This 151-nucleotide sequence from Streptomyces filipinensis belongs to the Rfam family "c-di-AMP riboswitch aptamer (ydaO/yuaA leader)".

RNA sequence: CAAGACGGGUCGCCGGAACGGAUGUUCGUCUGUACGUCACAGACGGCCGGAGGUUCCGAGCAGCCCUUGGGGUGAAGCCGCAUCGCGGCCGGGCAACUUCGCCAGCCCGAAUCCGACAGGUCAUCCUUCACAGGCGGCUGACGAAGGGUUG
Dot-bracket structure: ..........((((....((.......................))...((((....((.........))(((.....((((...))))..((((..........))))...)))...........))))...))))...............
About the family: This family represents a conserved RNA structure found upstream of the ydaO and yuaA genes in Bacillus subtilis and related genes in other bacteria. Taxonomically the source falls in Streptomyces (Bacteria, Bacillati, Actinomycetes, Streptomycetaceae). The pairing is the family consensus, mapped onto this sequence.